[Rfam]
RNA sequence: AUCGUUCAUCCCUUUAGGGUCGGAAGUAUGCUAUAAUGCAGAAGGAACGCAUC
Numbered sequence: 001a002u003c004g005u006u007c008a009u010c011c012c013u014u015u016a017g018g019g020u021c022g023g024a025a026g027u028a029u030g031c032u033a034u035a036a037u038g039c040a041g042a043a044g045g046a047a048c049g050c051a052u053c
Base pairs, nucleotide, nucleotide: 003049004048005047006046007045010019011018012017023050029040030039031038
The record is a 53-nucleotide RNA, which matches "Glutamine riboswitch aptamer (glnA leader)" in Rfam. Rfam's curators put it in the seed alignment.